Shown here is a 123-nucleotide RNA sequence from Brassica napus, a member of the family "MIR9563 microRNA precursor family". NCBI's taxonomy places the organism under Eukaryota, Viridiplantae, Magnoliopsida, eudicotyledons, Brassica. The match comes from Rfam's covariance-model search (93 bits).
[Rfam]
RNA sequence: GUAAGUUAAUAAACUGUUUCUUAACUUUUAACUAAAAAACUAGGAACCGGUUCUUAAAGUCCUUAUUUAAGAACCGGUUCUAGGUUUUUUAGUUAAAAGUUAAGAAACAGUUUCUUAACUUCU
Numbered sequence: 001g002u003a004a005g006u007u008a009a010u011a012a013a014c015u016g017u018u019u020c021u022u023a024a025c026u027u028u029u030a031a032c033u034a035a036a037a038a039a040c041u042a043g044g045a046a047c048c049g050g051u052u053c054u055u056a057a058a059g060u061c062c063u064u065a066u067u068u069a070a071g072a073a074c075c076g077g078u079u080c081u082a083g084g085u086u087u088u089u090u091a092g093u094u095a096a097a098a099g100u101u102a103a104g105a106a107a108c109a110g111u112u113u114c115u116u117a118a119c120u121u122c123u
Stems, first nucleotide, its partner, number of pairs: 001123001003121007011113029040083003044080003